[Rfam]
RNA sequence: CACCUUGCACAAACGGACCACAGGGCCCAUAUCUAAGAUGUCUCUUCGGGGACUAUGGAUAUAAACGAGCGUGUUAUUAGCCGGGCCGGACCGGGGUGCGACUCCCCGCAGCUCCACCAUACAUCCUCUCAUUUGGGGGAUUAUGGGGCUGAAUUAGGAUCGACGGACUGUGAACGGGCGUGUCUUUAUCUCGGUGAGUUACCACCGAUAUCGGUACAAACUGUACAAUUGCAAAUGACAAUCGUGCUCCAAUGGCGAUGGCUGCGUAAGCAGUCCUACCUAUUGAAACUUAACUCCUUGCGAUUAGCGUCGUAGGGCGGGGUUCGCAGGUACCUGGCAACAGAAACCUGCACU
Numbered sequence: 001c002a003c004c005u006u007g008c009a010c011a012a013a014c015g016g017a018c019c020a021c022a023g024g025g026c027c028c029a030u031a032u033c034u035a036a037g038a039u040g041u042c043u044c045u046u047c048g049g050g051g052a053c054u055a056u057g058g059a060u061a062u063a064a065a066c067g068a069g070c071g072u073g074u075u076a077u078u079a080g081c082c083g084g085g086c087c088g089g090a091c092c093g094g095g096g097u098g099c100g101a102c103u104c105c106c107c108g109c110a111g112c113u114c115c116a117c118c119a120u121a122c123a124u125c126c127u128c129u130c131a132u133u134u135g136g137g138g139g140a141u142u143a144u145g146g147g148g149c150u151g152a153a154u155u156a157g158g159a160u161c162g163a164c165g166g167a168c169u170g171u172g173a174a175c176g177g178g179c180g181u182g183u184c185u186u187u188a189u190c191u192c193g194g195u196g197a198g199u200u201a202c203c204a205c206c207g208a209u210a211u212c213g214g215u216a217c218a219a220a221c222u223g224u225a226c227a228a229u230u231g232c233a234a235a236u237g238a239c240a241a242u243c244g245u246g247c248u249c250c251a252a253u254g255g256c257g258a259u260g261g262c263u264g265c266g267u268a269a270g271c272a273g274u275c276c277u278a279c280c281u282a283u284u285g286a287a288a289c290u291u292a293a294c295u296c297c298u299u300g301c302g303a304u305u306a307g308c309g310u311c312g313u314a315g316g317g318c319g320g321g322g323u324u325c326g327c328a329g330g331u332a333c334c335u336g337g338c339a340a341c342a343g344a345a346a347c348c349u350g351c352a353c354u
Stems, first nucleotide, its partner, number of pairs: 040053005057191005067184002069181004082170003086166003092108005109151007192207004198217002201215003320335004326351006
RNA: Alphaproteobacteria transfer-messenger RNA
Organism: Yoonia ponticola